[Rfam]
RNA sequence: GUUGAGGCUCCAUCUACAAAUGGAUAAUUCUUUAGCGUUAGUCAAGAUCUAGUUUAGUAAUACUAAAACACGAGCAAUAUAAGCCUUCUUUCAAAUUGAAAGAAGGCUUAUAUUGCUCAUUU
Number, nucleotide and partner (000 for none) at each position: 001g000002u000003u000004g000005a000006g000007g000008c000009u024010c023011c022012a021013u020014c000015u000016a000017c000018a000019a000020a013021u012022g011023g010024a009025u000026a000027a000028u000029u000030c000031u000032u000033u000034a000035g000036c000037g000038u000039u000040a000041g000042u000043c000044a000045a000046g000047a000048u000049c000050u000051a000052g000053u000054u000055u000056a000057g000058u000059a000060a000061u000062a000063c000064u000065a000066a000067a000068a122069c000070a120071c000072g118073a117074g116075c115076a114077a113078u112079a111080u110081a000082a000083g000084c000085c102086u101087u100088c000089u000090u000091u000092c000093a000094a000095a000096u000097u000098g000099a000100a087101a086102g085103a000104a000105g000106g000107c000108u000109u000110a080111u079112a078113u077114u076115g075116c074117u073118c072119a000120u070121u000122u068

Rfam assigns this 122-nucleotide sequence from Draba nemorosa to the family "Plastid-psbA-1 3UTR RNA". Pairs were carried over by alignment from the consensus structure, which was predicted with LocARNA. A reference for the family is Richter et al. (2023), "Retrograde signaling in plants: A critical review focusing on the GUN pathway and beyond", Plant Commun. The family is grouped with related families in Rfam's "Plastid-psbA 3UTR RNA clan". Rfam's curators put it in the seed alignment.